A member of the RNA family "mir-2489 microRNA precursor family" from Drosophila melanogaster, 95 nucleotides long. Pairs were carried over by alignment from the consensus structure, which was predicted with RNAalifold. NCBI's taxonomy places the organism under Eukaryota, Opisthokonta, Endopterygota, Brachycera, Sophophora. The sequence is in the family's curated seed alignment.
RNA sequence: GCAAUAAGUUAGACGUGAGUAUGGCUAUACAAAUCAUCUGGAACGUAAGUUCUAAUGUAUGUAUUGUAUGUUGUAUUUGCAGUUUUAUGAUAGCA
Number, nucleotide and partner (000 for none) at each position: 001g094002c093003a000004a091005u090006a000007a000008g088009u087010u000011a085012g084013a083014c082015g080016u079017g078018a077019g076020u075021a074022u073023g072024g071025c070026u000027a069028u068029a067030c066031a065032a064033a000034u000035c061036a060037u059038c057039u054040g053041g052042a051043a050044c049045g000046u000047a000048a000049g044050u043051u042052c041053u040054a039055a000056u000057g038058u000059a037060u036061g035062u000063a000064u032065u031066g030067u029068a028069u027070g025071u024072u023073g022074u021075a020076u019077u018078u017079g016080c015081a000082g014083u013084u012085u011086u000087a009088u008089g000090a005091u004092a000093g002094c001095a000